The record is a 73-nucleotide RNA from Aokuangvirus SCBWM1, which matches "tRNA" in Rfam.
NCBI's taxonomy places the organism under Viruses, Duplodnaviria, Heunggongvirae, Aokuangvirus, Aokuangvirus SCBWM1.
Pairs were carried over by alignment from the consensus structure, which is taken from published work.
The family's RNA type in Rfam is transfer RNA.
[Rfam]
RNA sequence: GCCUGAUUAACUCAGCGGACAGAGUGCUUGGCUUCGAACCAAGUGGUCGGGAGUUCGAAUCUCUCAUCAGGCG
Number, nucleotide and partner (000 for none) at each position: 001g072002c071003c070004u069005g068006a067007u066008u000009a000010a025011c024012u023013c022014a000015g000016c000017g000018g000019a000020c000021a000022g013023a012024g011025u010026g000027c043028u042029u041030g040031g039032c000033u000034u000035c000036g000037a000038a000039c031040c030041a029042a028043g027044u000045g000046g000047u000048c000049g065050g064051g063052a062053g061054u000055u000056c000057g000058a000059a000060u000061c053062u052063c051064u050065c049066a007067u006068c005069a004070g003071g002072c001073g000